[Rfam]
Description: A member of the RNA family "S15-Methanomicrobia ribosomal protein leader", 70 nucleotides long. Rfam's curators put it in the seed alignment. Clan: Ribosomal Protein S15 Leader clan.
RNA sequence: AGCACAUUAUGUGCUGGCUAUGGUAAGUCCGACGUGCUCCCACGCACUGCCCGCGAGGGCUCGGGAUUAC
Numbered sequence: 001a002g003c004a005c006a007u008u009a010u011g012u013g014c015u016g017g018c019u020a021u022g023g024u025a026a027g028u029c030c031g032a033c034g035u036g037c038u039c040c041c042a043c044g045c046a047c048u049g050c051c052c053g054c055g056a057g058g059g060c061u062c063g064g065g066a067u068u069a070c
Base pairs, nucleotide, nucleotide: 001015002014003013004012005011006010023070024069025068026067029065030064034047035046036045037044049060050059051058052057